[Rfam]
RNA sequence: UCGCCCUGCCUUUCAGGCAUCCUCUCCCAAGACUUUUCCAGCCCGGUUGGUUCGCCAGCCGGGCUUUUUUCUUGUCCGCC
Numbered sequence: 001u002c003g004c005c006c007u008g009c010c011u012u013u014c015a016g017g018c019a020u021c022c023u024c025u026c027c028c029a030a031g032a033c034u035u036u037u038c039c040a041g042c043c044c045g046g047u048u049g050g051u052u053c054g055c056c057a058g059c060c061g062g063g064c065u066u067u068u069u070u071c072u073u074g075u076c077c078g079c080c
Stems, first nucleotide, its partner, number of pairs: 008018004040065009
Annotation
The family of this 80-nucleotide RNA sequence from Qipengyuania vulgaris is "Makes More Granules Regulator RNA (mmgR)". Rfam 15.1 lists 1,791 matches to the family in 918 species. Lineage of the source: Bacteria > Pseudomonadati > Alphaproteobacteria > Erythrobacteraceae > Qipengyuania. The match comes from Rfam's covariance-model search (52 bits).